[Rfam]
RNA sequence: CAACUUUUAACUUAACGUCACACAUGCACCGACACAUGUUCUUGGGUGCUCAAUUUCAGCGCUCUGACCCUGAUAUAUCACGGGCAGAGGAUGGGCUGGCAAGCUGCCAGCACUAACACUGAAAGCGGGUUAGAUCAUGGGGUGUAUGGAGGCCUAAC
Numbered sequence: 001c002a003a004c005u006u007u008u009a010a011c012u013u014a015a016c017g018u019c020a021c022a023c024a025u026g027c028a029c030c031g032a033c034a035c036a037u038g039u040u041c042u043u044g045g046g047u048g049c050u051c052a053a054u055u056u057c058a059g060c061g062c063u064c065u066g067a068c069c070c071u072g073a074u075a076u077a078u079c080a081c082g083g084g085c086a087g088a089g090g091a092u093g094g095g096c097u098g099g100c101a102a103g104c105u106g107c108c109a110g111c112a113c114u115a116a117c118a119c120u121g122a123a124a125g126c127g128g129g130u131u132a133g134a135u136c137a138u139g140g141g142g143u144g145u146a147u148g149g150a151g152g153c154c155u156a157a158c
Base pairs, nucleotide, nucleotide: 023148024147025146026145027144028143029142030141035139036138037137038136040134041133042132048130049129050128051127